[Rfam]
RNA sequence: GCGGCAGGCCGCCUUAUCGCUGUCCGUUUUAGGCGGAGAGAGGAAAGUCCGGACACCGUAGGAUACCAUAGCGGCUAGCGGCCGUCGUUUUGUUUUUAAGGAAGCUGGAAAUUAUUCCGCUUUCGCGAAAGCGAGAUAGGACAAGUGCAACAGAAAGCAAGUACAGGUUAUGCUGUAGUGAAACCAGGUAAACUCUAUGGGGUGAAACGCCGCGUAAAUCAGAGCUCGAUCGCGAUCCGUGCGAUCUGAAGGGUAGGCGGUUUGAGGUCGUGAGUAAUUGCGAUCCUAGAUAAAUGAUAAGGAAUCCGUUGUAGGGUUACAGAAUCCGGCUUACAGGUCUGCCAUUUUU
Numbered sequence: 001g002c003g004g005c006a007g008g009c010c011g012c013c014u015u016a017u018c019g020c021u022g023u024c025c026g027u028u029u030u031a032g033g034c035g036g037a038g039a040g041a042g043g044a045a046a047g048u049c050c051g052g053a054c055a056c057c058g059u060a061g062g063a064u065a066c067c068a069u070a071g072c073g074g075c076u077a078g079c080g081g082c083c084g085u086c087g088u089u090u091u092g093u094u095u096u097u098a099a100g101g102a103a104g105c106u107g108g109a110a111a112u113u114a115u116u117c118c119g120c121u122u123u124c125g126c127g128a129a130a131g132c133g134a135g136a137u138a139g140g141a142c143a144a145g146u147g148c149a150a151c152a153g154a155a156a157g158c159a160a161g162u163a164c165a166g167g168u169u170a171u172g173c174u175g176u177a178g179u180g181a182a183a184c185c186a187g188g189u190a191a192a193c194u195c196u197a198u199g200g201g202g203u204g205a206a207a208c209g210c211c212g213c214g215u216a217a218a219u220c221a222g223a224g225c226u227c228g229a230u231c232g233c234g235a236u237c238c239g240u241g242c243g244a245u246c247u248g249a250a251g252g253g254u255a256g257g258c259g260g261u262u263u264g265a266g267g268u269c270g271u272g273a274g275u276a277a278u279u280g281c282g283a284u285c286c287u288a289g290a291u292a293a294a295u296g297a298u299a300a301g302g303a304a305u306c307c308g309u310u311g312u313a314g315g316g317u318u319a320c321a322g323a324a325u326c327c328g329g330c331u332u333a334c335a336g337g338u339c340u341g342c343c344a345u346u347u348u349u
Stems, first nucleotide, its partner, number of pairs: 001345001003343008011334001012302007020040002023037006045332003049329005054204004061238004066200005071085005086139001087137011140195002145193002147189002163176004208259004219249005231241003266285008
Bacterial RNase P class A: a 349-nucleotide RNA sequence from Nonlabens spongiae.
A search with the family's covariance model found it, with a score of 182 bits.
It is annotated as a ribozyme.